Rfam assigns this 249-nucleotide RNA sequence from Pseudonaja textilis to the family "Small nucleolar RNA SNORD17". Rfam links the family to the GO terms RNA processing and nucleolus. A search with the family's covariance model found it, with a score of 107 bits. The base pairs follow the family's consensus structure, which was predicted with RNAalifold. The family has 19 seed sequences and 1,015 matches in Rfam 15.1. The source organism's lineage runs through Eukaryota, Deuterostomia, Sauria, Squamata and Pseudonaja. The snoRNA HBI-43 belongs to the C/D family of snoRNAs, guiding 2'O-ribose methylation at position U3797 of the 28S rRNA. Pseudouridylation in position U3797 is predicted to be guided by the H/ACA snoRNA ACA48. The literature on the family includes a 2001 paper in EMBO J by Huttenhofer et al., "RNomics: an experimental approach that identifies 201 candidates for novel, small, non-messenger RNAs in mouse".
[Rfam]
Nucleotides: 249
Stems, first nucleotide, its partner, number of pairs: 010248004017241002025234006031227002035223002040187002043184001045182008054171003059166002062091010073080001096163006109149001111146001115142001117141011189220003193216001195214001198211002
Number, partner (000 for none) and nucleotide at each position: 001000g002000u003000g004000a005000a006000g007000u008000g009000a010248u011247g012246a013245u014000g015000a016000c017241g018240u019000u020000u021000u022000a023000u024000c025234c026233a027232u028231u029230c030229u031227c032226u033000g034000a035223g036222u037000g038000c039000c040187g041186c042000u043184u044000g045182c046181u047180c048179u049178g050177c051176c052175c053000u054171u055170c056169c057000u058000g059166u060165c061000a062091c063090g064089u065088u066087g067086a068085g069084g070083c071082u072000u073080c074000a075000g076000u077000u078000c079000u080073g081000c082071a083070g084069c085068c086067u087066c088065g089064a090063c091062g092000u093000u094000c095000c096163g097162u098161g099160g100159c101158u102000u103000c104000u105000a106000a107000a108000c109149a110000c111146c112000u113000u114000c115142c116000g117141g118140g119139c120138u121137u122136c123135c124134a125133g126132u127131g128000u129000u130000c131127u132126a133125c134124u135123g136122g137121a138120g139119g140118u141117u142115g143000u144000g145000g146111g147000g148000a149109u150000g151000u152000u153000u154000g155000g156000c157000u158101a159100g160099c161098u162097g163096c164000u165060g166059a167000c168000u169056g170055g171054a172000c173000c174000u175052g176051g177050g178049c179048a180047g181046g182045g183000g184043a185000c186041g187040c188000a189220g190219g191218g192000c193216c194000u195214g196000a197000c198211c199210c200000c201000u202000u203000u204000c205000c206000u207000a208000u209000g210199g211198g212000g213000c214195c215000c216193g217000a218191c219190u220189c221000a222036a223035c224000a225000a226032a227031g228000a229030a230029g231028a232027a233026u234025g235000a236000a237000g238000c239000c240018g241017u242000c243000u244000g245013a246012u247011c248010a249000c